Rfam assigns this 102-nucleotide RNA sequence from Anaeromonas frigoriresistens to the family "Purine riboswitch aptamer".
The match comes from Rfam's covariance-model search (84 bits).
Lineage of the source: Bacteria > Bacillati > Bacillota > Tissierellales > Anaeromonas.
The base pairs follow the family's consensus structure, which is taken from published work.
Rfam's curators write: Riboswitches are metabolite binding domains within certain messenger RNAs that serve as precision sensors for their corresponding targets.
[Rfam]
RNA sequence: AACUUAAUAUUUUGAGAAACUCAUAUAUACUCUGGGAUAUGGCCAGAAAGUCUCUACCGGACAACCAUAAAUUGUCUGACUAUGAGUGGAAAAUUGGUGUAU
Numbered sequence: 001a002a003c004u005u006a007a008u009a010u011u012u013u014g015a016g017a018a019a020c021u022c023a024u025a026u027a028u029a030c031u032c033u034g035g036g037a038u039a040u041g042g043c044c045a046g047a048a049a050g051u052c053u054c055u056a057c058c059g060g061a062c063a064a065c066c067a068u069a070a071a072u073u074g075u076c077u078g079a080c081u082a083u084g085a086g087u088g089g090a091a092a093a094u095u096g097g098u099g100u101a102u
Stems, first nucleotide, its partner, number of pairs: 019087007031047005058078007